RNA: RT-14 RNA
Organism: Desulfurispora thermophila
RNA sequence: CUCUGCCUGGCAAGCCAGAAGUCGAAACCCCACGGGGUUUCGUCCAGUGCGCAGGCAAAGGAACCCGGUUCCUUGUCGCGCCAGCUUGUCUGGCCGGCAAAAAACAUAAACAGGUAGCGGGUGGCAAGUAACCUUGCAAGGUGAAAGUCAUCCGCUACC
Numbered sequence: 001c002u003c004u005g006c007c008u009g010g011c012a013a014g015c016c017a018g019a020a021g022u023c024g025a026a027a028c029c030c031c032a033c034g035g036g037g038u039u040u041c042g043u044c045c046a047g048u049g050c051g052c053a054g055g056c057a058a059a060g061g062a063a064c065c066c067g068g069u070u071c072c073u074u075g076u077c078g079c080g081c082c083a084g085c086u087u088g089u090c091u092g093g094c095c096g097g098c099a100a101a102a103a104a105c106a107u108a109a110a111c112a113g114g115u116a117g118c119g120g121g122u123g124g125c126a127a128g129u130a131a132c133c134u135u136g137c138a139a140g141g142u143g144a145a146a147g148u149c150a151u152c153c154g155c156u157a158c159c
Stems, first nucleotide, its partner, number of pairs: 003054004014050002021044001023042007075098004113159013131142004